[Rfam]
Nucleotides: 063
Stems, first nucleotide, its partner, number of pairs: 001049003004045004013036006020029001
Number, partner (000 for none) and nucleotide at each position: 001049a002048c003047u004045c005044a006043g007042a008000c009000a010000c011000g012000a013036u014035u015034c016033g017032u018031g019000a020029c021000c022000a023000c024000c025000u026000u027000g028000a029020g030000a031018c032017a033016c034015g035014g036013a037000a038000c039000c040000g041000a042007u043006c044005u045004g046000a047003a048002g049001u050000g051000c052000a053000a054000u055000c056000c057000u058000g059000a060000g061000g062000g063000a
Shown here is a 63-nucleotide RNA from Corynebacterium occultum, a member of the family "L31-Corynebacteriaceae ribosomal protein leader". The organism belongs to Corynebacterium, within Bacteria. On this family, see Eckert and Weinberg, BMC Microbiol 2020: "Discovery of 20 novel ribosomal leader candidates in bacteria and archaea". The match comes from Rfam's covariance-model search (60 bits).